[Rfam]
Nucleotides: 131
Stems, first nucleotide, its partner, number of pairs: 002057005016043002019040003024030002069124003073121001091109006
Number, partner (000 for none) and nucleotide at each position: 001000c002057c003056u004055u005054u006053c007000a008000a009000c010000a011000a012000a013000g014000a015000a016043a017042u018000u019040u020039c021038u022000u023000u024030g025029g026000u027000u028000c029025u030024c031000u032000g033000u034000c035000u036000u037000u038021g039020g040019a041000c042017a043016u044000a045000u046000a047000a048000a049000c050000a051000c052000u053006g054005g055004a056003g057002g058000a059000a060000a061000a062000g063000a064000a065000a066000u067000g068000u069124g070123g071122a072000u073121u074000u075000g076000g077000a078000g079000a080000a081000a082000u083000c084000u085000g086000g087000g088000g089000c090000c091109a092108g093107c094106u095105u096104g097000c098000u099000c100000c101000c102000u103000a104096u105095g106094g107093g108092c109091u110000c111000a112000g113000a114000a115000u116000c117000a118000a119000u120000c121073a122071u123070c124069u125000u126000a127000c128000a129000u130000a131000g
This 131-nucleotide sequence from Sciurus carolinensis belongs to the Rfam family "Small nucleolar RNA SNORA38". Rfam's curators write: ACA38 is a member of the H/ACA class of snoRNA that guide the sites of modification of uridines to pseudouridines. The match comes from Rfam's covariance-model search (108 bits).